[Rfam]
RNA sequence: UUAUAAGUAAUAGUUCACUUUUCAGAUUCAAUGAAUAACUGUUGUAUCUGAUCUAUAAUUUAGACCAGAUACAUCAGUUAUUCAUUGAAUCUGAAAAGUUGACUUUUGCUUAUAA
Numbered sequence: 001u002u003a004u005a006a007g008u009a010a011u012a013g014u015u016c017a018c019u020u021u022u023c024a025g026a027u028u029c030a031a032u033g034a035a036u037a038a039c040u041g042u043u044g045u046a047u048c049u050g051a052u053c054u055a056u057a058a059u060u061u062a063g064a065c066c067a068g069a070u071a072c073a074u075c076a077g078u079u080a081u082u083c084a085u086u087g088a089a090u091c092u093g094a095a096a097a098g099u100u101g102a103c104u105u106u107u108g109c110u111u112a113u114a115a
Base pairs, nucleotide, nucleotide: 002114003113004112005111006110007109009107010106012104013103015101017099018098019097020096021095022094023093024092025091027089028088029087030086031085032084033083034082035081036080037079038078039077040076041075043073044072049067050066052064